Source information:
Shown here is a 180-nucleotide sequence from Robertmurraya siralis, a member of the family "Lysine riboswitch aptamer". Riboswitches are metabolite binding domains within certain messenger RNAs that serve as precision sensors for their corresponding targets. Gene Ontology term of the family: lysine biosynthetic process. It scores 131 bits against the family's covariance model.

[Rfam]
RNA sequence: AGUGAAGGUAGAGGUGCGGACACGAAGAGUAAGGGCUUGGAGAAAGAUGAGUUUCGAAGAAAAGUCUUGAAAGGGGUGGGCGCCGAAGUGAAGAAAGGCUCAUUCCUUUUUUUGCUGGUUCUGUGACUGAAUAGGUGCAGAAUUGUCAAGACUUGUUUGUCUUGGAGAGCUAUCUUACUU
Numbered sequence: 001a002g003u004g005a006a007g008g009u010a011g012a013g014g015u016g017c018g019g020a021c022a023c024g025a026a027g028a029g030u031a032a033g034g035g036c037u038u039g040g041a042g043a044a045a046g047a048u049g050a051g052u053u054u055c056g057a058a059g060a061a062a063a064g065u066c067u068u069g070a071a072a073g074g075g076g077u078g079g080g081c082g083c084c085g086a087a088g089u090g091a092a093g094a095a096a097g098g099c100u101c102a103u104u105c106c107u108u109u110u111u112u113u114g115c116u117g118g119u120u121c122u123g124u125g126a127c128u129g130a131a132u133a134g135g136u137g138c139a140g141a142a143u144u145g146u147c148a149a150g151a152c153u154u155g156u157u158u159g160u161c162u163u164g165g166a167g168a169g170c171u172a173u174c175u176u177a178c179u180u
Stems, first nucleotide, its partner, number of pairs: 006175006016083003021078003032068007087116012117144009127134001146165007